Small nucleolar RNA SNORA79: a 142-nucleotide RNA from Coregonus sp. 'balchen'.
For this family Rfam cites "A computational screen for mammalian pseudouridylation guide H/ACA RNAs" (Schattner et al., RNA, 2006).
By type it is an H/ACA-box small nucleolar RNA.
A search with the family's covariance model found it, with a score of 83 bits.
Rfam's curators write: ACA65 (SNORA79) is a member of the H/ACA class of snoRNAs that guide the sites of modification of uridines to pseudouridines. This snoRNA was identified by computational screening and its expression in mouse experimentally verified by Northern blot and primer extension analysis.
RNA sequence: UGACGCCUGUUCCUCUCGCUGCUCUGAGAUGUGGCAGUUGGGAUUUUAGGUCGUCACAGAGUAAAGCAGGGUCUAUUUCACCCAGUGUUUGAGGUAGCAGGGCUGCCGUUAUCUACACCGGACUUUGCUGGACCCCACACUU
Numbered sequence: 001u002g003a004c005g006c007c008u009g010u011u012c013c014u015c016u017c018g019c020u021g022c023u024c025u026g027a028g029a030u031g032u033g034g035c036a037g038u039u040g041g042g043a044u045u046u047u048a049g050g051u052c053g054u055c056a057c058a059g060a061g062u063a064a065a066g067c068a069g070g071g072u073c074u075a076u077u078u079c080a081c082c083c084a085g086u087g088u089u090u091g092a093g094g095u096a097g098c099a100g101g102g103c104u105g106c107c108g109u110u111a112u113c114u115a116c117a118c119c120g121g122a123c124u125u126u127g128c129u130g131g132a133c134c135c136c137a138c139a140c141u142u
Base pairs, nucleotide, nucleotide: 001056002055003054004053005052007050008049014043015042016041017040018039020036021035022034023033070134071133072132073131074130075129082121083120085118086117087116088115093107094106095105096104